The record is an 82-nucleotide RNA sequence from Vidua macroura, which matches "Small nucleolar RNA SNORD72" in Rfam. Rfam describes the family as follows. snoRNA HBII-240 belongs to the CD family of snoRNAs. The base pairs follow the family's consensus structure. On this family, see Huttenhofer et al., EMBO J 2001: "RNomics: an experimental approach that identifies 201 candidates for novel, small, non-messenger RNAs in mouse". It scores 50 bits against the family's covariance model. The organism belongs to Vidua, within Eukaryota.

RNA sequence: CAAUUUUUAAUAAUGUUUUAUGUUUAAAAAGGUCUGAACAGGUGAACUCUAUAGUGAUCUCAUUGCAUUACUGAGAUAAAUU
Numbered sequence: 001c002a003a004u005u006u007u008u009a010a011u012a013a014u015g016u017u018u019u020a021u022g023u024u025u026a027a028a029a030a031g032g033u034c035u036g037a038a039c040a041g042g043u044g045a046a047c048u049c050u051a052u053a054g055u056g057a058u059c060u061c062a063u064u065g066c067a068u069u070a071c072u073g074a075g076a077u078a079a080a081u082u
Stems, first nucleotide, its partner, number of pairs: 002081001004079002007076002